The family of this 273-nucleotide part of an RNA from Chloropicon primus is "Eukaryotic large subunit ribosomal RNA". Taxonomically the source falls in Chloropicon (Eukaryota, Viridiplantae, Chloropicophyceae, Chloropicales).

[Rfam]
RNA sequence: GAGUCUAACAUGUAUGCGAGUCGGCGGGUGGAAAACCCGUAGGCGCAAGUAACCUAACAGGUGGGAUUAUUGCACCAUCGACCAACCUUGAUCUUCUGUGAAGGGUUUGAGUACGAGCAUACCUGUUGGGACCCGAAAGAUGGUGAACUAUGCCUGAGCAGGGCGAAGCCAGAGGAAACUCUGGUGGAGGCUCGUAGGGAUACUGACGUGCAAAUCGUUCUUCGGACUUGGGUAUAGGGGCGAAAGACUAAUCGAACCAUCUAGUAGCUGGUU
Numbered sequence: 001g002a003g004u005c006u007a008a009c010a011u012g013u014a015u016g017c018g019a020g021u022c023g024g025c026g027g028g029u030g031g032a033a034a035a036c037c038c039g040u041a042g043g044c045g046c047a048a049g050u051a052a053c054c055u056a057a058c059a060g061g062u063g064g065g066a067u068u069a070u071u072g073c074a075c076c077a078u079c080g081a082c083c084a085a086c087c088u089u090g091a092u093c094u095u096c097u098g099u100g101a102a103g104g105g106u107u108u109g110a111g112u113a114c115g116a117g118c119a120u121a122c123c124u125g126u127u128g129g130g131a132c133c134c135g136a137a138a139g140a141u142g143g144u145g146a147a148c149u150a151u152g153c154c155u156g157a158g159c160a161g162g163g164c165g166a167a168g169c170c171a172g173a174g175g176a177a178a179c180u181c182u183g184g185u186g187g188a189g190g191c192u193c194g195u196a197g198g199g200a201u202a203c204u205g206a207c208g209u210g211c212a213a214a215u216c217g218u219u220c221u222u223c224g225g226a227c228u229u230g231g232g233u234a235u236a237g238g239g240g241c242g243a244a245a246g247a248c249u250a251a252u253c254g255a256a257c258c259a260u261c262u263a264g265u266a267g268c269u270g271g272u273u
Base pairs, nucleotide, nucleotide: 005129006128007127008126009125010124012122013121014120015119016118017117020044021043022042025039026038027037028036029035048055049054060079061078062077063076064075081112082111083109084108085107086105087104088103093098132271133270135268139261140260141259142258143257144256148237149236150235151234152233153232154231155230156229157228158227159225161193162192163191164190168185169184170183171182172181173180174179197222198221199220200219202218203217205216206215239249240248
Dot-bracket structure: ....((((((.((((((..(((..(((((.....)))))..)))...((....))....(((((..........))))).((((((((....(....)....))).))).))....)))))).))))))..((.(...((((((...((((((((((((.((((...(((((((....)))))))....))))...((((.((.((........))))))))..).))))))))))).((.......))......))))))......).))..